RNA: SAH (S-adenosyl-L-homocysteine) riboswitch aptamer
Organism: Verticiella sediminum
RNA sequence: UUUUCCGAGGAGCGUUGCGACGGAUCGAUCCGCCAGGCUCGGAAUCCCGGAGGUUUGCGCUCCGGCCGUUGCAACUGCGCUCGUUCAUC
Numbered sequence: 001u002u003u004u005c006c007g008a009g010g011a012g013c014g015u016u017g018c019g020a021c022g023g024a025u026c027g028a029u030c031c032g033c034c035a036g037g038c039u040c041g042g043a044a045u046c047c048c049g050g051a052g053g054u055u056u057g058c059g060c061u062c063c064g065g066c067c068g069u070u071g072c073a074a075c076u077g078c079g080c081u082c083g084u085u086c087a088u089c
Base pairs, nucleotide, nucleotide: 003044004043005042006041007040008039021032022031023030024029